[Rfam]
RNA: mir-1199 microRNA precursor family
Organism: Urocitellus parryii
RNA sequence: UGCGACGGAGCCGGGGCCUGAGCUCCAGCCGCGCAGGCCAGGAACUGGUCGAGCUGCGCGUGCGGCCGGUGCUCAGUCGGCCAGGUCCGGGCCCCGCGCU
Numbered sequence: 001u002g003c004g005a006c007g008g009a010g011c012c013g014g015g016g017c018c019u020g021a022g023c024u025c026c027a028g029c030c031g032c033g034c035a036g037g038c039c040a041g042g043a044a045c046u047g048g049u050c051g052a053g054c055u056g057c058g059c060g061u062g063c064g065g066c067c068g069g070u071g072c073u074c075a076g077u078c079g080g081c082c083a084g085g086u087c088c089g090g091g092c093c094c095c096g097c098g099c100u
Stems, first nucleotide, its partner, number of pairs: 002099003007095002010092003014088005019075005024069002028066007037057002045053002